[Rfam]
RNA sequence: UGGCGCCCAACGUGGGCUCCAGCACGGGAUCCAGUGAAGGACGCUGUUCGAGUGGCCGGCAGAAAGGAAAGCGAAGGAAAAGAAAGUAGAAGAAAAGAGGGAACGACGUGGGCACCUGCUGCGUCUGCACCCCUCGGGUAAGUGAACGGCAAUUAUGGGUCAAGCAUUGAGCCAAGAUAAGAUGUUCGUUGAAGGACUAGGAAAGGCUAUCAAGGCACGAGGAGUAAAGGUGAAAAUUAAGCAUUUAUGUCAGUAUUUUGAAUAUGUUAAGGAAGUUUGUCCUU
Numbered sequence: 001u002g003g004c005g006c007c008c009a010a011c012g013u014g015g016g017c018u019c020c021a022g023c024a025c026g027g028g029a030u031c032c033a034g035u036g037a038a039g040g041a042c043g044c045u046g047u048u049c050g051a052g053u054g055g056c057c058g059g060c061a062g063a064a065a066g067g068a069a070a071g072c073g074a075a076g077g078a079a080a081a082g083a084a085a086g087u088a089g090a091a092g093a094a095a096a097g098a099g100g101g102a103a104c105g106a107c108g109u110g111g112g113c114a115c116c117u118g119c120u121g122c123g124u125c126u127g128c129a130c131c132c133c134u135c136g137g138g139u140a141a142g143u144g145a146a147c148g149g150c151a152a153u154u155a156u157g158g159g160u161c162a163a164g165c166a167u168u169g170a171g172c173c174a175a176g177a178u179a180a181g182a183u184g185u186u187c188g189u190u191g192a193a194g195g196a197c198u199a200g201g202a203a204a205g206g207c208u209a210u211c212a213a214g215g216c217a218c219g220a221g222g223a224g225u226a227a228a229g230g231u232g233a234a235a236a237u238u239a240a241g242c243a244u245u246u247a248u249g250u251c252a253g254u255a256u257u258u259u260g261a262a263u264a265u266g267u268u269a270a271g272g273a274a275g276u277u278u279g280u281c282c283u284u
Stems, first nucleotide, its partner, number of pairs: 006028003012023002097135002099132002104127001107123005143162003147159001150157002169210001171207003218260005224254002228246005269284005
The family of this 284-nucleotide RNA sequence from Molossus molossus is "Mason-Pfizer monkey virus packaging signal". By type it is a cis-regulatory element. Its family is annotated with viral genome packaging in the Gene Ontology. Lineage of the source: Eukaryota > Sarcopterygii > Theria > Molossidae > Molossus. The family's consensus secondary structure was predicted with PFOLD.